Notes:
The record is a 94-nucleotide RNA from Acetobacterium paludosum, which matches "THF (Tetrahydrofolate) riboswitch aptamer" in Rfam. A search with the family's covariance model found it, with a score of 70 bits. Rfam's curators write: Tetrahydrofolate (THF) riboswitch was first reported for Ames et al. as an RNA motif in 5' untranslated (5'-UTR)regions of folate transport and biosynthesis genes in Firmicutes genomes. The organism belongs to Acetobacterium, within Bacteria. The family's consensus secondary structure is taken from published work. A reference for the family is Ames et al. (2010), "A eubacterial riboswitch class that senses the coenzyme tetrahydrofolate", Chem Biol.
[Rfam]
RNA sequence: ACCAGAGUAGACAAAGAUGCGUAAAGUGUUAAAGGAUGGGAAGUUGCCUUUAAACGAAAUGUGACCAUUGCGGUAUCUUGUCGCUUCCGCUGUU
Numbered sequence: 001a002c003c004a005g006a007g008u009a010g011a012c013a014a015a016g017a018u019g020c021g022u023a024a025a026g027u028g029u030u031a032a033a034g035g036a037u038g039g040g041a042a043g044u045u046g047c048c049u050u051u052a053a054a055c056g057a058a059a060u061g062u063g064a065c066c067a068u069u070g071c072g073g074u075a076u077c078u079u080g081u082c083g084c085u086u087c088c089g090c091u092g093u094u
Base pairs, nucleotide, nucleotide: 001094003092004091005090010082011081012080013079015078016077017076018075019074020072021071022070026055027054029053030052031051032050033049034048035047039088040087041086042085043084058069059068060067061066